[Rfam]
The family of this 128-nucleotide RNA sequence from Populus trichocarpa is "Small nucleolar RNA SNORD14". The family has 18 seed sequences and 4,559 matches in Rfam 15.1. A reference for the family is Samarsky et al. (1996), "An essential domain in Saccharomyces cerevisiae U14 snoRNA is absent in vertebrates, but conserved in other yeasts", Nucleic Acids Res. About the family: U14 small nucleolar RNA (U14 snoRNA) is required for early cleavages of eukaryotic precursor rRNAs. The match comes from Rfam's covariance-model search (70 bits). Lineage of the source: Eukaryota > Streptophyta > Pentapetalae > Saliceae > Populus.
RNA sequence: GGUCAAUGAUGAUAGAUCCAAAGGCUUGUUUCUCAAGAACAUUCGCAGUGGCCGCCUAAGAGCUUUCGCCUUUCGCCCAAGGCUUGAGAGCUUCUGCUGCAUCUUUCCUUCCUUGGAUGUCUGAGCCC
Dot-bracket structure: ((.(.........................................................((((((..................)))))).................................).))
Numbered sequence: 001g002g003u004c005a006a007u008g009a010u011g012a013u014a015g016a017u018c019c020a021a022a023g024g025c026u027u028g029u030u031u032c033u034c035a036a037g038a039a040c041a042u043u044c045g046c047a048g049u050g051g052c053c054g055c056c057u058a059a060g061a062g063c064u065u066u067c068g069c070c071u072u073u074c075g076c077c078c079a080a081g082g083c084u085u086g087a088g089a090g091c092u093u094c095u096g097c098u099g100c101a102u103c104u105u106u107c108c109u110u111c112c113u114u115g116g117a118u119g120u121c122u123g124a125g126c127c128c
Stems, first nucleotide, its partner, number of pairs: 001128002004125001062091006